RNA sequence: GGUGGCAAAGAUGGUGCAUACUUGCCUUCACUUAGACCAUAGUUCAUGGCUAAGAGCAUUAUUCUGAGCCAGU
Numbered sequence: 001g002g003u004g005g006c007a008a009a010g011a012u013g014g015u016g017c018a019u020a021c022u023u024g025c026c027u028u029c030a031c032u033u034a035g036a037c038c039a040u041a042g043u044u045c046a047u048g049g050c051u052a053a054g055a056g057c058a059u060u061a062u063u064c065u066g067a068g069c070c071a072g073u
Stems, first nucleotide, its partner, number of pairs: 001073001003071004

Small nucleolar RNA SNORD103/SNORD85: a 73-nucleotide RNA sequence from Nannospalax galili. It is annotated as a C/D-box small nucleolar RNA. NCBI's taxonomy places the organism under Eukaryota, Metazoa, Dipnotetrapodomorpha, Glires, Nannospalax.